Shown here is a 213-nucleotide RNA from a Gemmataceae bacterium, a member of the family "SAM riboswitch aptamer (S box leader)". It scores 69 bits against the family's covariance model. Taxonomically the source falls in Gemmataceae (Bacteria, Planctomycetota, Planctomycetia, Gemmatales).
RNA sequence: AUCUUAUCCAGAGUGGCUGAGGGGCCAGGCCCGACGACGCCACAGCAACCGGGCGGGAGGACUUUGGAGGUUGGAAAUCGGAGAUUGGAAGCACCGCUGCUGACCCAAUGUCCCAUUCCCAACCUCCAAUCACCACCCCGCCGCAGGUGCUAACUCCUGCCCGGCAAACGCCUCGCUCCGAACGGGAGCGGGUAUGGCCGGGGAAGAUAAGAU
Number, nucleotide and partner (000 for none) at each position: 001a213002u212003c211004u210005u209006a208007u207008c206009c000010a000011g000012a000013g043014u042015g041016g040017c039018u000019g000020a000021g032022g031023g030024g000025c000026c159027a158028g157029g156030c023031c022032c021033g000034a000035c000036g000037a000038c000039g017040c016041c015042a014043c013044a151045g150046c149047a148048a000049c147050c146051g000052g142053g141054c140055g139056g138057g137058a000059g000060g000061a000062c000063u000064u000065u000066g000067g000068a000069g000070g000071u000072u000073g000074g000075a000076a000077a000078u000079c000080g000081g000082a000083g000084a000085u000086u000087g000088g000089a000090a000091g000092c000093a000094c000095c000096g000097c000098u000099g000100c000101u000102g000103a000104c000105c000106c000107a000108a000109u000110g000111u000112c000113c000114c000115a000116u000117u000118c000119c000120c000121a000122a000123c000124c000125u000126c000127c000128a000129a000130u000131c000132a000133c000134c000135a000136c000137c057138c056139c055140g054141c053142c052143g000144c000145a000146g050147g049148u047149g046150c045151u044152a000153a000154c000155u205156c029157c028158u027159g026160c202161c201162c200163g199164g198165c197166a000167a000168a000169c000170g000171c000172c000173u000174c000175g000176c000177u000178c000179c000180g000181a000182a000183c000184g000185g000186g000187a000188g000189c000190g000191g000192g000193u000194a000195u000196g000197g165198c164199c163200g162201g161202g160203g000204a000205a155206g008207a007208u006209a005210a004211g003212a002213u001